[Rfam]
RNA sequence: GUCGAGCUUGGUAACGUGAGCUUGUAACUCGAGUGAGGGCAUUAAGGUGAUUGGACUUGGGUUUUACUCAUGAUGGUCGGGCAUGAUCUAGCUAUAACCAGACCCGCCCGUUCCAAGUUGGGAGUUGGGUUAUGUGGUGCAGGUGAAGACCUGUGCCACGUGGGCUCCUAAAGUGGAGGGUACUGCGUCAGUCUGGCUUCACAGAGCAGCGAAAACCUCCCACUCUCAACAGUGGAAGGAUAACGGGUCCAGCUCCUCAGGUCCAAUAUAGCCAGCAAGGUCCAGCCCAAUGGACAAUCACUUUU
Dot-bracket structure: ((((((((((......)))))))....(((....))))))...((((((((((..(.(((.((..((.(.((.((((.((((.(((...((.(.......((((((.((.(((((.(((((((((.((((((((((((((((((....)))))))))))))).))))(....).(((((....(.(((....(((......)))....))).)..))))).)))))))))..)))))))....))))))..)))..))).))))......)))).)).)))..)).)))..)..)))))))))).
Numbered sequence: 001g002u003c004g005a006g007c008u009u010g011g012u013a014a015c016g017u018g019a020g021c022u023u024g025u026a027a028c029u030c031g032a033g034u035g036a037g038g039g040c041a042u043u044a045a046g047g048u049g050a051u052u053g054g055a056c057u058u059g060g061g062u063u064u065u066a067c068u069c070a071u072g073a074u075g076g077u078c079g080g081g082c083a084u085g086a087u088c089u090a091g092c093u094a095u096a097a098c099c100a101g102a103c104c105c106g107c108c109c110g111u112u113c114c115a116a117g118u119u120g121g122g123a124g125u126u127g128g129g130u131u132a133u134g135u136g137g138u139g140c141a142g143g144u145g146a147a148g149a150c151c152u153g154u155g156c157c158a159c160g161u162g163g164g165c166u167c168c169u170a171a172a173g174u175g176g177a178g179g180g181u182a183c184u185g186c187g188u189c190a191g192u193c194u195g196g197c198u199u200c201a202c203a204g205a206g207c208a209g210c211g212a213a214a215a216c217c218u219c220c221c222a223c224u225c226u227c228a229a230c231a232g233u234g235g236a237a238g239g240a241u242a243a244c245g246g247g248u249c250c251a252g253c254u255c256c257u258c259a260g261g262u263c264c265a266a267u268a269u270a271g272c273c274a275g276c277a278a279g280g281u282c283c284a285g286c287c288c289a290a291u292g293g294a295c296a297a298u299c300a301c302u303u304u305u
Stems, first nucleotide, its partner, number of pairs: 001040003004023007028037003044304010056292001058289003062285002066281002069279001071277002074274004079264004084259003090254002093252001101249006108239002111237005117230009127167004131162014168173001175220005184213001186211003193204003